RNA sequence: UGUAACUGCAGAUAGAGAUAUGCUGUACACUUGUGAAACCGAAUUAACGUUUAAGCGAUAUGUGCUAUCGCCGGACACAAGGGCCGCCUUUUUAGGCGGUUUUUUAUAAGC
Numbered sequence: 001u002g003u004a005a006c007u008g009c010a011g012a013u014a015g016a017g018a019u020a021u022g023c024u025g026u027a028c029a030c031u032u033g034u035g036a037a038a039c040c041g042a043a044u045u046a047a048c049g050u051u052u053a054a055g056c057g058a059u060a061u062g063u064g065c066u067a068u069c070g071c072c073g074g075a076c077a078c079a080a081g082g083g084c085c086g087c088c089u090u091u092u093u094a095g096g097c098g099g100u101u102u103u104u105u106a107u108a109a110g111c
Base pairs, nucleotide, nucleotide: 007027008026009025010024011023012021013020014019030081031080032079033078034077035076039074040073041072042051043050044049055071056070057069058068059067060066082101083100084099085098086097087096088095089094

Record summary
Shown here is a 111-nucleotide sequence from Massiliimalia timonensis, a member of the family "DUF3800-I RNA". Rfam classes the family as a small RNA. Rfam describes the family as follows. Actinobacteria, Firmicutes, Fusobacteria, Proteobacteria (1 example), Tenericutes (2 examples).